[Rfam]
RNA: ASpks TB sRNA
Organism: Actinoplanes sp. N902-109
RNA sequence: CUUGACCGACCCGAGCCACAACGGCUUGCCCUCGGGUCGGUCCUGCCCGUACGUCGCCAGCAGCGCCUGCGCCUC
Numbered sequence: 001c002u003u004g005a006c007c008g009a010c011c012c013g014a015g016c017c018a019c020a021a022c023g024g025c026u027u028g029c030c031c032u033c034g035g036g037u038c039g040g041u042c043c044u045g046c047c048c049g050u051a052c053g054u055c056g057c058c059a060g061c062a063g064c065g066c067c068u069g070c071g072c073c074u075c
Stems, first nucleotide, its partner, number of pairs: 014026004031071001033069001038065002043060003047056001049054001